[Rfam]
RNA sequence: UUACUCUGGAGAGUGCGUGUAUUAAACGCCACCAAAGGGGAAGACUCUUUUAAAGAGUUAAACUUUCAGGUAAAAGGACAGAGAAGGGGGA
Numbered sequence: 001u002u003a004c005u006c007u008g009g010a011g012a013g014u015g016c017g018u019g020u021a022u023u024a025a026a027c028g029c030c031a032c033c034a035a036a037g038g039g040g041a042a043g044a045c046u047c048u049u050u051u052a053a054a055g056a057g058u059u060a061a062a063c064u065u066u067c068a069g070g071u072a073a074a075a076g077g078a079c080a081g082a083g084a085a086g087g088g089g090g091a
Stems, first nucleotide, its partner, number of pairs: 001086002004083005015029004031071003035066001038065003044058004
RNA: Glycine riboswitch aptamer